[Rfam]
RNA sequence: GAGACACCCUAAUGAGACAAGACUUGCUUCAGUGGGGCUUUGGUGCUCACCGAGUCUGUCCCCAAAGUGUGUCCUU
Numbered sequence: 001g002a003g004a005c006a007c008c009c010u011a012a013u014g015a016g017a018c019a020a021g022a023c024u025u026g027c028u029u030c031a032g033u034g035g036g037g038c039u040u041u042g043g044u045g046c047u048c049a050c051c052g053a054g055u056c057u058g059u060c061c062c063c064a065a066a067g068u069g070u071g072u073c074c075u076u
Base pairs, nucleotide, nucleotide: 001075003073004072005071006070007069009067010066014062016060017059018058019057021056022055023054029053030052032050033049034048035047036046037044038043

Notes:
The family of this 76-nucleotide RNA sequence from Pipistrellus kuhlii is "mir-9229 microRNA precursor family". Its family is annotated with RISC complex and miRNA-mediated post-transcriptional gene silencing in the Gene Ontology. Pairs were carried over by alignment from the consensus structure, which was predicted with RNAalifold. The family has 7 seed sequences and 27,225 matches in Rfam 15.1. The organism belongs to Pipistrellus, within Eukaryota.